The family of this 94-nucleotide RNA from Aegilops tauschii is "MIR1432 microRNA precursor family".
RNA sequence: GAUCAGGAGAGAUGACACCGACGCCGAUCAGAUGGGUCGGCUUAACCAGGCCAUGCAUCCGUCUGUUCGGAGUUGGUGUCACCUCGCCUGAACA
Numbered sequence: 001g002a003u004c005a006g007g008a009g010a011g012a013u014g015a016c017a018c019c020g021a022c023g024c025c026g027a028u029c030a031g032a033u034g035g036g037u038c039g040g041c042u043u044a045a046c047c048a049g050g051c052c053a054u055g056c057a058u059c060c061g062u063c064u065g066u067u068c069g070g071a072g073u074u075g076g077u078g079u080c081a082c083c084u085c086g087c088c089u090g091a092a093c094a
Base pairs, nucleotide, nucleotide: 001093003092004090005089006088007087009085010084011083013081014080015079016078017077018076019075021073022072028070029069031067032066033065034064035063036062037061039052040051041050

Gene Ontology terms of the family: RISC complex and miRNA-mediated post-transcriptional gene silencing.